[Rfam]
RNA sequence: AAGUCUAUUGCCAUGUGGAAGACUAGUGAUUUUGUUGUUUUUAUUAUCUAAGAAGACAACAAAUCAUAGUCUACCUCAGGGCUCUGAGAU
Dot-bracket structure: ...((.....((.((.((.(((((.(((((((.((((((...............)))))))))))))))))).)).)).))....))...
RNA: mir-7 microRNA precursor family
Organism: Sinocyclocheilus anshuiensis